[Rfam]
RNA sequence: CCGGCUCCGGUUCACGCCCGCUGCCGCGGACGACCCGGCGCC
Numbered sequence: 001c002c003g004g005c006u007c008c009g010g011u012u013c014a015c016g017c018c019c020g021c022u023g024c025c026g027c028g029g030a031c032g033a034c035c036c037g038g039c040g041c042c
Base pairs, nucleotide, nucleotide: 003042004041005040007038008037009036010035015032016031018029019028020027021026
Rfam assigns this 42-nucleotide sequence from Actinopolymorpha alba to the family "L31-Actinobacteria ribosomal protein leader". For this family Rfam cites "Discovery of 20 novel ribosomal leader candidates in bacteria and archaea" (Eckert and Weinberg, BMC Microbiol, 2020). The base pairs follow the family's consensus structure, which is taken from published work. The organism belongs to Actinopolymorpha alba, within Bacteria.